[Rfam]
RNA sequence: UCUGUCUCAGCUUCACUGGAUCACACAGGUUCAGUGUAUACUUGGCAUAUUUUAAGGAAGAGAGAGAGGGAGGAACCCUCCUAAUGCACUGCAGACCUGCCCCAAAGUGGUCUUUCUGUUCCUAGGAGUGUGAUAUUU
Number, nucleotide and partner (000 for none) at each position: 001u000002c068003u067004g000005u065006c064007u063008c062009a000010g000011c060012u059013u058014c057015a000016c000017u000018g000019g043020a042021u000022c000023a039024c000025a037026c036027a000028g000029g000030u000031u000032c000033a000034g000035u000036g026037u025038a000039u023040a000041c000042u020043u019044g000045g000046c000047a000048u000049a000050u000051u000052u000053u000054a000055a000056g000057g014058a013059a012060g011061a000062g008063a007064g006065a005066g000067a003068g002069g000070g000071a000072g000073g000074a000075a000076c000077c000078c128079u127080c126081c125082u124083a000084a123085u000086g121087c000088a000089c000090u000091g000092c000093a117094g116095a115096c000097c000098u000099g111100c110101c109102c000103c000104a000105a000106a000107g000108u000109g101110g100111u099112c000113u000114u000115u095116c094117u093118g000119u000120u000121c086122c000123u084124a082125g081126g080127a079128g078129u000130g000131u000132g000133a000134u000135a000136u000137u000138u000
The record is a 138-nucleotide sequence from Castor canadensis, which matches "Small nucleolar RNA SNORA64/SNORA10 family" in Rfam. By type it is an H/ACA-box small nucleolar RNA. This family belongs to the H/ACA class of small nucleolar RNAs (snoRNAs) which act as guides in the the modification of uridines to pseudouridines. This family includes the human snoRNAs U64 and ACA10 and mouse MBI-29. The source organism's lineage runs through Eukaryota, Chordata, Sarcopterygii, Tetrapoda and Castor. Pairs were carried over by alignment from the consensus structure, which is taken from published work. Gene Ontology terms of the family: nucleolus and RNA processing. A search with the family's covariance model found it, with a score of 65 bits.